The family of this 184-nucleotide sequence from Miscanthus lutarioriparius is "U2 spliceosomal RNA".
A search with the family's covariance model found it, with a score of 134 bits.
Rfam links the family to the GO terms mRNA branch site recognition, pre-mRNA branch point binding and U2 snRNP.
It is annotated as a spliceosomal small nuclear RNA.
Rfam describes the family as follows. U2 is a small nuclear RNA (snRNA) component of the spliceosome (involved in pre-mRNA splicing).
Lineage of the source: Eukaryota > Petrosaviidae > Poales > Saccharinae > Miscanthus.

[Rfam]
RNA sequence: AUACCUUUCUCGGCCUUUUGGCUAAGAUCAAGUGUAGUAUCUGUUCUUAUCGGUUUAAUAUUCGAUAUGUGAGACAUCGUCUCACAAUGAUAUUAAAUUUAUUUUUUAUGGGGAGGAUCCACUAUAGUAGCUUGCUACUAGGUUUCUCAAGUCUUUGGUAAUUCUAUGAUGAAAGAAAUAAACA
Numbered sequence: 001a002u003a004c005c006u007u008u009c010u011c012g013g014c015c016u017u018u019u020g021g022c023u024a025a026g027a028u029c030a031a032g033u034g035u036a037g038u039a040u041c042u043g044u045u046c047u048u049a050u051c052g053g054u055u056u057a058a059u060a061u062u063c064g065a066u067a068u069g070u071g072a073g074a075c076a077u078c079g080u081c082u083c084a085c086a087a088u089g090a091u092a093u094u095a096a097a098u099u100u101a102u103u104u105u106u107u108a109u110g111g112g113g114a115g116g117a118u119c120c121a122c123u124a125u126a127g128u129a130g131c132u133u134g135c136u137a138c139u140a141g142g143u144u145u146c147u148c149a150a151g152u153c154u155u156u157g158g159u160a161a162u163u164c165u166a167u168g169a170u171g172a173a174a175g176a177a178a179u180a181a182a183c184a
Stems, first nucleotide, its partner, number of pairs: 008027003012023004048067006069085007113148005119142002127138004156184002159180002162177003